Description: mir-29 microRNA precursor family: a 67-nucleotide RNA from Oryzias sinensis. From the family's description: This family represents the microRNA (miRNA) precursors mir-29. Pairs were carried over by alignment from the consensus structure, which was predicted with PFOLD. Gene Ontology terms of the family: RISC complex and gene silencing by miRNA.
RNA sequence: GGCUGACCGUUUUCCUUUGGUGUUCAGAGUUACCACCAUGUCUAGCACCAUUAGAAAUCGGUUACAA
Numbered sequence: 001g002g003c004u005g006a007c008c009g010u011u012u013u014c015c016u017u018u019g020g021u022g023u024u025c026a027g028a029g030u031u032a033c034c035a036c037c038a039u040g041u042c043u044a045g046c047a048c049c050a051u052u053a054g055a056a057a058u059c060g061g062u063u064a065c066a067a
Base pairs, nucleotide, nucleotide: 004064005062007061008060009059011057012056013055014054018050019049020048021047022046026043027042028041